The record is a 109-nucleotide RNA from Mucilaginibacter aquatilis, which matches "SAM riboswitch aptamer (S box leader)" in Rfam. Its family is annotated with regulation of gene expression in the Gene Ontology. Taxonomically the source falls in Mucilaginibacter (Bacteria, Pseudomonadati, Bacteroidota, Sphingobacteriia).
RNA sequence: UAUUUAUCCAGAAAGACUGAGGGAAAGGCCCGAUGAAGUCUUAGCAACCUAUACUACUCUUAAGGUAAAAGGUGCUAAUUCCUGCUCCCAACAUGGAGAAAGAUAAAAC
Numbered sequence: 001u002a003u004u005u006a007u008c009c010a011g012a013a014a015g016a017c018u019g020a021g022g023g024a025a026a027g028g029c030c031c032g033a034u035g036a037a038g039u040c041u042u043a044g045c046a047a048c049c050u051a052u053a054c055u056a057c058u059c060u061u062a063a064g065g066u067a068a069a070a071g072g073u074g075c076u077a078a079u080u081c082c083u084g085c086u087c088c089c090a091a092c093a094u095g096g097a098g099a100a101a102g103a104u105a106a107a108a109c
Base pairs, nucleotide, nucleotide: 003107004106005105006104007103008102013042014041015040016039017038021031022030023029026083027082028081043076044075045074046073048072049071050068080101085098086097087096088095